[Rfam]
RNA: c-di-AMP riboswitch aptamer (ydaO/yuaA leader)
RNA sequence: AGCGAAUACGCGCUGAAUUCCCACGGGAAACGGGGGACCCACAGUUUUGGGGUGAAUCCUACUACGGUAGGUAGGGCUAAACUCUUUCGGCCCGAAUCCGUCAGCUAACCUCGUAAGCGUUGGAGGAGAUAAAA
Number, nucleotide and partner (000 for none) at each position: 001a000002g000003c000004g000005a000006a000007u000008a000009c000010g000011c119012g118013c117014u116015g000016a000017a000018u029019u028020c027021c000022c000023a000024c000025g000026g000027g020028a019029a018030a114031c113032g112033g111034g110035g109036g000037a000038c000039c000040c049041a048042c000043a000044g000045u000046u000047u000048u041049g040050g099051g098052g097053u000054g000055a000056a000057u000058c071059c070060u069061a068062c000063u000064a000065c000066g000067g000068u061069a060070g059071g058072u000073a000074g093075g092076g091077c090078u000079a000080a000081a000082c000083u000084c000085u000086u000087u000088c000089g000090g077091c076092c075093c074094g000095a000096a000097u052098c051099c050100g000101u000102c000103a000104g000105c000106u000107a000108a000109c035110c034111u033112c032113g031114u030115a000116a014117g013118c012119g011120u000121u000122g000123g000124a000125g000126g000127a000128g000129a000130u000131a000132a000133a000134a000